[Rfam]
RNA sequence: UUCUUAUCAAGAGAGGUGGAGGGACUGGCCCAAUGAAGCCCGGCAACAGCCAACUAUAUUACAGUAGUUGGAAAUGUGCCAAUUCCUGCAGCGUAAAAGCUGAGAGAUAAGAU
Numbered sequence: 001u002u003c004u005u006a007u008c009a010a011g012a013g014a015g016g017u018g019g020a021g022g023g024a025c026u027g028g029c030c031c032a033a034u035g036a037a038g039c040c041c042g043g044c045a046a047c048a049g050c051c052a053a054c055u056a057u058a059u060u061a062c063a064g065u066a067g068u069u070g071g072a073a074a075u076g077u078g079c080c081a082a083u084u085c086c087u088g089c090a091g092c093g094u095a096a097a098a099g100c101u102g103a104g105a106g107a108u109a110a111g112a113u
Stems, first nucleotide, its partner, number of pairs: 002112007013041001015040003021031003025088001027086002042080004047076002050071007084105001089102004